[Rfam]
RNA sequence: GGGGGUGUGUUGGUUUCGACGGGGGCGGUCGAGGUAAAAGUAGCGAGCCGAGUUCUCCACCAGCUCGUAAAAAAGGUGGAAAAAAAUAAACGCAGACAGAGAACUCGCUUACGCUGCCUAAUUAAAGGCGGCCGUCCAGCCUGAAAUGCCCACGUUUCAGGACUGGGCGUCAAAAGAGUGGGGAACUGGUUUUGCCUGCGCCUCGGGGCAAAACCGGAAUAAUGAGGCUACCGAAGCGGUUAUCCUGUCGCUGGGAGAACCGCUGAGGGAAAGCUAAAACAGCGACUGCGCUCGGAGAAGCUUUUACCGGGACGCCUUCGGACCGGGGUUCGAAUCCCCGCACCUCCACCA
Dot-bracket structure: (((((((............((((((((.(...(((((((((..((((([[[[[..((((((.]]]]].......))))))................................(((((((......)))))))((((((.((.((((..[[[[[.)))).))..))))))........]]]]]...((((((((......[[[[[.....))))))))......]]]]]..[..[..[[[[[.[...(((((((].]..]]]].]..]............)))))))...))))).....)))))))))..).))))))))...(((((.......))))))))))))....
Shown here is a 351-nucleotide sequence from Caldanaerobacter subterraneus, a member of the family "transfer-messenger RNA". Lineage of the source: Bacteria > Bacillota > Thermoanaerobacterales > Caldanaerobacter > Caldanaerobacter subterraneus subsp. tengcongensis. Gene Ontology term of the family: RNA catabolic process. By type it is a non-coding RNA gene. Bacterial tmRNA, also known as 10Sa RNA or SsrA, is named for its dual tRNA and mRNA-like properties. Its role is to liberate the mRNA from a stalled ribosome. To accomplish this part of the tmRNA is used as a reading frame that ends in a translation stop signal. The broken mRNA is replaced in the ribosome by the tmRNA and translation of the tmRNA leads to addition of a proteolysis tag to the incomplete protein enabling recognition by a protease. Recently a number of permuted tmRNA genes have been found encoded in two parts. tmRNAs have been identified in eubacteria and some chloroplasts but are absent from archaeal and eukaryote nuclear genomes.